[Rfam]
RNA sequence: AAAAAGAAAAGGUAAACCAGCCGAAAGGUUGGGACACAAAAUCACGGGGCUACCGCUAUUUAGCCAUGCUGGCCGGAUUGCCGUU
Number, nucleotide and partner (000 for none) at each position: 001a000002a000003a000004a000005a000006g000007a000008a000009a000010a000011g000012g037013u036014a000015a000016a000017c032018c031019a030020g029021c028022c027023g000024a000025a000026a000027g022028g021029u020030u019031g018032g017033g000034a000035c000036a013037c012038a000039a000040a079041a078042u077043c076044a000045c075046g074047g073048g070049g069050c068051u000052a000053c000054c000055g064056c063057u062058a000059u000060u000061u000062a057063g056064c055065c000066a000067u000068g050069c049070u048071g000072g000073c047074c046075g045076g043077a042078u041079u040080g000081c000082c000083g000084u000085u000
The record is an 85-nucleotide RNA from Alicyclobacillus sp. SO9, which matches "c-di-GMP-I riboswitch aptamer" in Rfam.
The base pairs follow the family's consensus structure, which is taken from published work.